[Rfam]
Rfam assigns this 83-nucleotide RNA sequence from Desulforamulus hydrothermalis to the family "ZMP/ZTP riboswitch aptamer (pfl RNA motif)". The base pairs follow the family's consensus structure, which is taken from published work.
RNA sequence: AAACAGUUACAUGACCGGCGGGAUUAUGUGGAGCACCACAGGGGAUUGUAACUGUCAAGCUGCCGACCGCCUGGGCAAUCAGU
Numbered sequence: 001a002a003a004c005a006g007u008u009a010c011a012u013g014a015c016c017g018g019c020g021g022g023a024u025u026a027u028g029u030g031g032a033g034c035a036c037c038a039c040a041g042g043g044g045a046u047u048g049u050a051a052c053u054g055u056c057a058a059g060c061u062g063c064c065g066a067c068c069g070c071c072u073g074g075g076c077a078a079u080c081a082g083u
Base pairs, nucleotide, nucleotide: 003055004054005053006052007051008050009049010048011047015043016042017071018070019069020068021067028039029038030037031036061077062076063075064074

Taxonomically the source falls in Desulforamulus hydrothermalis (Bacteria, Bacillati, Peptococcaceae, Desulforamulus).